[Rfam]
Rfam assigns this 86-nucleotide RNA sequence from Effusibacillus dendaii to the family "c-di-GMP-I riboswitch aptamer". It scores 83 bits against the family's covariance model.
RNA sequence: CAACGAUAAAGCCAAAACCGUCGAAAGACGGUGACGGAAAGCUAUGGGGCUAACUCCACAAUGGACAUGCUUGCCAAGCUACCGAA
Numbered sequence: 001c002a003a004c005g006a007u008a009a010a011g012c013c014a015a016a017a018c019c020g021u022c023g024a025a026a027g028a029c030g031g032u033g034a035c036g037g038a039a040a041g042c043u044a045u046g047g048g049g050c051u052a053a054c055u056c057c058a059c060a061a062u063g064g065a066c067a068u069g070c071u072u073g074c075c076a077a078g079c080u081a082c083c084g085a086a
Stems, first nucleotide, its partner, number of pairs: 012037002017032006040080004045076003048071003055065004
GEMM was predicted in a large-scale screen for bacterial structured RNA regulatory elements. Its Rfam clan is "c-di-GMP_I riboswitch clan". Pairs were carried over by alignment from the consensus structure, which is taken from published work.